[Rfam]
Nucleotides: 428
Stems, first nucleotide, its partner, number of pairs: 001428004007421003015381001021058004034048005068411005078223004088102005103118006119219007139204003386401002389398002
Number, partner (000 for none) and nucleotide at each position: 001428g002427g003426c004425g005000g006000g007421g008420g009419a010000a011000g012000c013000u014000c015381a016000u017000c018000a019000g020000c021058g022057g023056g024055g025000c026000c027000a028000c029000g030000c031000g032000c033000u034048g035047a036046g037045u038044g039000c040000u041000u042000g043000u044038c045037a046036c047035u048034c049000c050000a051000u052000c053000g054000g055024c056023c057022c058021c059000u060000g061000g062000g063000a064000a065000g066000g067000u068411c069410u070409g071408a072407g073000a074000c075000u076000g077000g078223g079222g080221c081220c082000u083000c084000c085000c086000g087000c088102g089101g090100c091099c092098c093000u094000a095000a096000c097000c098092g099091g100090g101089c102088u103118c104117u105116c106115c107114c108113c109000g110000a111000g112000u113108g114107g115106g116105g117104a118103g119219g120218u121217g122216a123215g124214u125213u126000c127000c128000c129000a130000g131000a132000g133000a134000g135000c136000a137000g138000g139204g140203c141202u142000c143000c144000a145000c146000g147000c148000g149000u150000g151000g152000g153000c154000a155000g156000a157000c158000u159000g160000g161000g162000c163000a164000g165000g166000a167000g168000a169000a170000g171000c172000c173000c174000c175000c176000g177000g178000g179000u180000g181000g182000g183000c184000g185000g186000a187000u188000g189000c190000c191000u192000c193000c194000c195000u196000c197000g198000c199000c200000g201000g202141g203140g204139c205000u206000u207000g208000g209000a210000a211000c212000a213125g214124a215123c216122u217121c218120a219119c220081g221080g222079c223078c224000a225000g226000c227000a228000g229000u230000u231000c232000g233000a234000g235000a236000a237000c238000u239000u240000a241000g242000g243000c244000a245000u246000c247000c248000a249000a250000a251000a252000g253000u254000g255000u256000a257000g258000c259000u260000c261000c262000u263000a264000g265000u266000u267000u268000c269000a270000g271000g272000u273000g274000u275000a276000g277000c278000u279000g280000u281000a282000c283000c284000c285000a286000g287000g288000a289000c290000u291000c292000a293000a294000a295000a296000c297000c298000a299000u300000c301000c302000a303000g304000g305000g306000a307000c308000a309000c310000g311000g312000c313000u314000g315000g316000a317000c318000c319000u320000g321000u322000u323000c324000u325000u326000u327000c328000c329000u330000u331000a332000c333000u334000c335000a336000c337000c338000c339000g340000g341000g342000c343000a344000u345000c346000u347000g348000a349000a350000u351000u352000c353000c354000u355000g356000u357000g358000u359000c360000g361000u362000u363000u364000u365000c366000g367000g368000u369000g370000a371000g372000c373000a374000c375000a376000a377000g378000g379000u380000u381015u382000c383000c384000c385000u386401g387400g388000u389398u390397a391000u392000c393000a394000a395000g396000c397390u398389a399000u400387c401386c402000c403000a404000a405000c406000a407072u408071u409070c410069a411068g412000u413000g414000c415000u416000u417000u418000c419009u420008u421007u422000u423000c424000c425004u426003g427002c428001u

Nuclear RNase P: a 428-nucleotide sequence from Rattus norvegicus. The organism belongs to Rattus, within Eukaryota. The base pairs follow the family's consensus structure, which is taken from published work. The sequence is in the family's curated seed alignment. By type it is a ribozyme.